Rfam assigns this 376-nucleotide RNA from Nocardioides faecalis to the family "Bacterial RNase P class A". The organism belongs to Nocardioides, within Bacteria. The base pairs follow the family's consensus structure, which is taken from published work. By type it is a ribozyme.
RNA sequence: CGGGCUGGCCGGGCGACCGCGUGACCUCCGCCGCGAGGCGACAGGUCCCGAGGAAAGUCCGGGCUCCACAGAGCAGGGUGGUGGGUAACACCCACCCGGGGUGACCCGCGGGAAAGUGCCACAGAGAACAGACCGCCGCCGCUCCUCGGAGCGGAGGCAAGGGUGAAACGGUGGGGCAAGAGCCCACCAGUGUGCCGGGUGACCGGCGCAGCUAGGCAAACCCCACCCGGAGCAAGACCAGACAGCGCACGAUCGGCUCCGGCCGGGAGGGCUGCUCGCCCGAGUGCGCGGGUAGGUCGCUGGAGGCUGUCGGCAACGGCAGUCCUAGAUGGAUGGUCGCCAACUACAGAACCCGGCUUACAGGCCAGCCCGUCCC
Numbered sequence: 001c002g003g004g005c006u007g008g009c010c011g012g013g014c015g016a017c018c019g020c021g022u023g024a025c026c027u028c029c030g031c032c033g034c035g036a037g038g039c040g041a042c043a044g045g046u047c048c049c050g051a052g053g054a055a056a057g058u059c060c061g062g063g064c065u066c067c068a069c070a071g072a073g074c075a076g077g078g079u080g081g082u083g084g085g086u087a088a089c090a091c092c093c094a095c096c097c098g099g100g101g102u103g104a105c106c107c108g109c110g111g112g113a114a115a116g117u118g119c120c121a122c123a124g125a126g127a128a129c130a131g132a133c134c135g136c137c138g139c140c141g142c143u144c145c146u147c148g149g150a151g152c153g154g155a156g157g158c159a160a161g162g163g164u165g166a167a168a169c170g171g172u173g174g175g176g177c178a179a180g181a182g183c184c185c186a187c188c189a190g191u192g193u194g195c196c197g198g199g200u201g202a203c204c205g206g207c208g209c210a211g212c213u214a215g216g217c218a219a220a221c222c223c224c225a226c227c228c229g230g231a232g233c234a235a236g237a238c239c240a241g242a243c244a245g246c247g248c249a250c251g252a253u254c255g256g257c258u259c260c261g262g263c264c265g266g267g268a269g270g271g272c273u274g275c276u277c278g279c280c281c282g283a284g285u286g287c288g289c290g291g292g293u294a295g296g297u298c299g300c301u302g303g304a305g306g307c308u309g310u311c312g313g314c315a316a317c318g319g320c321a322g323u324c325c326u327a328g329a330u331g332g333a334u335g336g337u338c339g340c341c342a343a344c345u346a347c348a349g350a351a352c353c354c355g356g357c358u359u360a361c362a363g364g365c366c367a368g369c370c371c372g373u374c375c376c
Stems, first nucleotide, its partner, number of pairs: 001372010011361001012341007020050002023047005055359003059356005064232004071277004076228005081095005096110001097108004111223002116221002118217003133162002135158003139154006170188006190212001191210008236298004245289006269281004305324008
Dot-bracket structure: ((((((((((((((((((.((.(((((...............))))).))....[[[.[[[[[((((...[[[[.((((((((((.....)))))(((((....)))).)((...(((((............(((((.((((((....)))))).)))..)).......((((((.......)))))).(((((((((....)))))))).)..)))..)))))))))))))...((((.....((((((..................((((.]]]]))))..)))))).....))))......((((((((....))))))))..........)))))))..........]]]]]]]].).))))))))))....